[Rfam]
Rfam assigns this 57-nucleotide RNA sequence from Rhodococcus sp. AD45 to the family "F6 TB sRNA".
By type it is a small RNA.

RNA sequence: AAGACAGCCCCGUGCUGCUGCCUGACCCCCGACCUGGCAGCAACGCGGGGCUCUUGU
Numbered sequence: 001a002a003g004a005c006a007g008c009c010c011c012g013u014g015c016u017g018c019u020g021c022c023u024g025a026c027c028c029c030c031g032a033c034c035u036g037g038c039a040g041c042a043a044c045g046c047g048g049g050g051c052u053c054u055u056g057u
Base pairs, nucleotide, nucleotide: 003055004054007051008050009049010048011047012046013045014044016042017041018040019039020038021037022036